[Rfam]
RNA sequence: GGGGGCGGAAAGGAUUCGACGGGGACAGGCGGUCCCCGAGGAGCAGGCCGGGUGGCUCCCGUAACAGCCGCUAAAACAGCUCCCGAAGCUGAACUCGCUCUCGCUGCCUAAUUAAACGGCAGCGCGUCCCCGGUAGGUUUGCGGGUGGCCUACCGGAGGGCGUCAGAGACACCCGCUCGGGCUACUCGGUCGCACGGGGCUGAGUAGCUGACACCUAACCCGUGCUACCCUCGGGGAGCUUGCCCGUGGGCGACCCGAGGGGAAAUCCUGAACACGGGCUAAGCCUGUAGAGCCUCGGAUGUGGCCGCCGUCCUCGGACGCGGGUUCGAUUCCCGCCGCCUCCA
Numbered sequence: 001g002g003g004g005g006c007g008g009a010a011a012g013g014a015u016u017c018g019a020c021g022g023g024g025a026c027a028g029g030c031g032g033u034c035c036c037c038g039a040g041g042a043g044c045a046g047g048c049c050g051g052g053u054g055g056c057u058c059c060c061g062u063a064a065c066a067g068c069c070g071c072u073a074a075a076a077c078a079g080c081u082c083c084c085g086a087a088g089c090u091g092a093a094c095u096c097g098c099u100c101u102c103g104c105u106g107c108c109u110a111a112u113u114a115a116a117c118g119g120c121a122g123c124g125c126g127u128c129c130c131c132g133g134u135a136g137g138u139u140u141g142c143g144g145g146u147g148g149c150c151u152a153c154c155g156g157a158g159g160g161c162g163u164c165a166g167a168g169a170c171a172c173c174c175g176c177u178c179g180g181g182c183u184a185c186u187c188g189g190u191c192g193c194a195c196g197g198g199g200c201u202g203a204g205u206a207g208c209u210g211a212c213a214c215c216u217a218a219c220c221c222g223u224g225c226u227a228c229c230c231u232c233g234g235g236g237a238g239c240u241u242g243c244c245c246g247u248g249g250g251c252g253a254c255c256c257g258a259g260g261g262g263a264a265a266u267c268c269u270g271a272a273c274a275c276g277g278g279c280u281a282a283g284c285c286u287g288u289a290g291a292g293c294c295u296c297g298g299a300u301g302u303g304g305c306c307g308c309c310g311u312c313c314u315c316g317g318a319c320g321c322g323g324g325u326u327c328g329a330u331u332c333c334c335g336c337c338g339c340c341u342c343c344a
Stems, first nucleotide, its partner, number of pairs: 001343007020316007034303001035301001036298006044287005049061004053070005102124007125162005130156004135151003141176007180209006192225006228262004238251003242279003247274002320336005